Source information: This 72-nucleotide sequence belongs to the Rfam family "L4-Archaeoglobi ribosomal protein leades". The family's RNA type in Rfam is cis-regulatory leader. The literature on the family includes a 2020 paper in BMC Microbiol by Eckert and Weinberg, "Discovery of 20 novel ribosomal leader candidates in bacteria and archaea".
RNA sequence: CUGAUUGAACGCGCCGGGCGAACGUGAAAACGAGCCCACUUUCUGCAUAGCCGGAAAGCGCGUCCGGGUCAG
Numbered sequence: 001c002u003g004a005u006u007g008a009a010c011g012c013g014c015c016g017g018g019c020g021a022a023c024g025u026g027a028a029a030a031c032g033a034g035c036c037c038a039c040u041u042u043c044u045g046c047a048u049a050g051c052c053g054g055a056a057a058g059c060g061c062g063u064c065c066g067g068g069u070c071a072g
Base pairs, nucleotide, nucleotide: 001072002071003070004069005068009063010062011061012060013059014058016037017036018035023032024031025030040057041056042055043054044053045051046050